[Rfam]
RNA sequence: UUGCUACAGUAUCAUUUGAGUAUCCUGAAAACGGGCUUUUCAGAGUGGUGCUGUUGUAUAAAAAUUUAGGAGUGCAUAGUGGCCCGUAUAGCAGGCAUUAACAUUCCUGAU
Numbered sequence: 001u002u003g004c005u006a007c008a009g010u011a012u013c014a015u016u017u018g019a020g021u022a023u024c025c026u027g028a029a030a031a032c033g034g035g036c037u038u039u040u041c042a043g044a045g046u047g048g049u050g051c052u053g054u055u056g057u058a059u060a061a062a063a064a065u066u067u068a069g070g071a072g073u074g075c076a077u078a079g080u081g082g083c084c085c086g087u088a089u090a091g092c093a094g095g096c097a098u099u100a101a102c103a104u105u106c107c108u109g110a111u
Base pairs, nucleotide, nucleotide: 004056006054007053008052009051010050011049012048013047024095025094026093032086033085034084035083040110041109042108
Dot-bracket structure: ...(.((((((((..........[[[.....[[[[....{{{....)))))))).)..........................]]]]......]]]............}}}.

Shown here is a 111-nucleotide RNA sequence from Hafnia alvei, a member of the family "Alpha operon ribosome binding site". It is annotated as a cis-regulatory element. Rfam links the family to the GO term ribosome binding. Rfam's curators write: The bacterial alpha operon ribosome binding site is surrounded by this complex pseudoknotted structure. Translation of the mRNA produces 4 ribosomal protein products, one of which (S4) acts as a translational repressor by binding to the nested pseudoknot region.